This 211-nucleotide RNA from Rhodoplanes roseus belongs to the Rfam family "Bradyrhizobiaceae sRNA BjrC174". For this family Rfam cites "Small RNAs of the Bradyrhizobium/Rhodopseudomonas lineage and their analysis" (Madhugiri et al., RNA Biol, 2012). The source organism's lineage runs through Bacteria, Pseudomonadati, Pseudomonadota, Hyphomicrobiales and Rhodoplanes.
RNA sequence: AUCACGCGUUCGUUAGACGCUUCAUAAUACUGCCGGAUUUCGGCCUCGCCCCGGUCGAGCCGCAAUGGCAUCAAACAGCAUUGGCAUAGGGUCCGGUCCGAGAAGAGAACCGGUUCCUCAGCCCCCCAGCCCCCCGGGCUCGUAAGGGCCGGACCCUGUCGCCACGCGGACGGUUUUGGCCAAAAAGGCCGAGCCGUCCGUUGGUUCAUUU
Numbered sequence: 001a002u003c004a005c006g007c008g009u010u011c012g013u014u015a016g017a018c019g020c021u022u023c024a025u026a027a028u029a030c031u032g033c034c035g036g037a038u039u040u041c042g043g044c045c046u047c048g049c050c051c052c053g054g055u056c057g058a059g060c061c062g063c064a065a066u067g068g069c070a071u072c073a074a075a076c077a078g079c080a081u082u083g084g085c086a087u088a089g090g091g092u093c094c095g096g097u098c099c100g101a102g103a104a105g106a107g108a109a110c111c112g113g114u115u116c117c118u119c120a121g122c123c124c125c126c127c128a129g130c131c132c133c134c135c136g137g138g139c140u141c142g143u144a145a146g147g148g149c150c151g152g153a154c155c156c157u158g159u160c161g162c163c164a165c166g167c168g169g170a171c172g173g174u175u176u177u178g179g180c181c182a183a184a185a186a187g188g189c190c191g192a193g194c195c196g197u198c199c200g201u202u203g204g205u206u207c208a209u210u211u
Base pairs, nucleotide, nucleotide: 036167041048082164083163084162085161090155091154092153093152094151095150096149097148098147099146105141106140107139110137111136112135113134121130122129177208178207179205180204181203182202183201